[Rfam]
RNA: terC RNA
Organism: Sphingomonas jeddahensis
RNA sequence: CCCGCGGGCCGGGCCCCUCUGACACCCACUAGCGGUGUGAUGUCGGACCGCAAGU
Number, nucleotide and partner (000 for none) at each position: 001c000002c000003c000004g000005c000006g049007g048008g000009c046010c045011g044012g043013g000014c000015c000016c000017c000018u000019c000020u000021g000022a038023c037024a036025c035026c034027c032028a000029c000030u000031a000032g027033c000034g026035g025036u024037g023038u022039g000040a000041u000042g000043u012044c011045g010046g009047a000048c007049c006050g000051c000052a000053a000054g000055u000